Small nucleolar RNA SNORA29: a 138-nucleotide RNA sequence from Albula glossodonta. The base pairs follow the family's consensus structure, which was predicted with PFOLD. The source organism's lineage runs through Eukaryota, Gnathostomata, Actinopteri, Teleostei and Albula. Rfam classes the family as an H/ACA-box small nucleolar RNA. A reference for the family is Huttenhofer et al. (2001), "RNomics: an experimental approach that identifies 201 candidates for novel, small, non-messenger RNAs in mouse", EMBO J. It scores 73 bits against the family's covariance model.
RNA sequence: GGUCCCAUUUUAGUACCAUUCAUUCCCUUCACCACGAAUGUAUGGCUAUGCUAAUGGGAUAGAUAAAACUCUGUCAUUGUCUGAGAGAGAGGUUGGCGAUCUCCACCUGUCCUAAAUGAAAUGACAGUAUAUGACUUC
Numbered sequence: 001g002g003u004c005c006c007a008u009u010u011u012a013g014u015a016c017c018a019u020u021c022a023u024u025c026c027c028u029u030c031a032c033c034a035c036g037a038a039u040g041u042a043u044g045g046c047u048a049u050g051c052u053a054a055u056g057g058g059a060u061a062g063a064u065a066a067a068a069c070u071c072u073g074u075c076a077u078u079g080u081c082u083g084a085g086a087g088a089g090a091g092g093u094u095g096g097c098g099a100u101c102u103c104c105a106c107c108u109g110u111c112c113u114a115a116a117u118g119a120a121a122u123g124a125c126a127g128u129a130u131a132u133g134a135c136u137u138c
Stems, first nucleotide, its partner, number of pairs: 004058004016045004073125004090113003